RNA sequence: UCAUAUUACAUGUUUUGUGCGUGAAUCUAAUUCGUAUGCUCAUGUAGUAAUCCUAUCUUGUUGUUGGAUUAGAUUCACGCACAAACUCGUAAUCUGUCU
Dot-bracket structure: .((.(((....((.(((((((((((((.(((.((..............................)).))).)))))))))))))))....))).))...
Numbered sequence: 001u002c003a004u005a006u007u008a009c010a011u012g013u014u015u016u017g018u019g020c021g022u023g024a025a026u027c028u029a030a031u032u033c034g035u036a037u038g039c040u041c042a043u044g045u046a047g048u049a050a051u052c053c054u055a056u057c058u059u060g061u062u063g064u065u066g067g068a069u070u071a072g073a074u075u076c077a078c079g080c081a082c083a084a085a086c087u088c089g090u091a092a093u094c095u096g097u098c099u
Stems, first nucleotide, its partner, number of pairs: 002096002005093003012086002015084013029070003033066002